[Rfam]
RNA: Cyano-1 RNA
RNA sequence: GAAAUCGUGAGGAAGACUUCUUCGCGGAGUGGAAACUAGGCAACACGCCCAAAGAGAAGUCGAGA
Numbered sequence: 001g002a003a004a005u006c007g008u009g010a011g012g013a014a015g016a017c018u019u020c021u022u023c024g025c026g027g028a029g030u031g032g033a034a035a036c037u038a039g040g041c042a043a044c045a046c047g048c049c050c051a052a053a054g055a056g057a058a059g060u061c062g063a064g065a
Base pairs, nucleotide, nucleotide: 015061016060017059018058019057020056021055022054026050027049029046030045031044